This 80-nucleotide RNA sequence from Culex quinquefasciatus belongs to the Rfam family "mir-2944 microRNA precursor family". Its family is annotated with miRNA-mediated post-transcriptional gene silencing and RISC complex in the Gene Ontology.

Nucleotides: 080
Base pairs, nucleotide, nucleotide: 003078004077005076006075007074008073009072010071011070016066017065018064020062021061024058025057026056028054029053030052031051032050033049035047036046
Number, partner (000 for none) and nucleotide at each position: 001000g002000g003078u004077g005076g006075c007074u008073g009072a010071c011070g012000u013000u014000g015000a016066a017065g018064g019000a020062a021061c022000u023000u024058c025057u026056g027000c028054u029053g030052u031051g032050a033049u034000c035047u036046g037000a038000g039000a040000u041000g042000u043000g044000u045000u046036c047035a048000u049033a050032u051031c052030a053029c054028a055000g056026u057025a058024g059000u060000u061021g062020u063000a064018c065017u066016u067000u068000a069000a070011c071010g072009u073008c074007g075006g076005u077004c078003g079000g080000c

Overview:
A search with the family's covariance model found it, with a score of 58 bits. The family has 6 seed sequences and 66 matches in Rfam 15.1.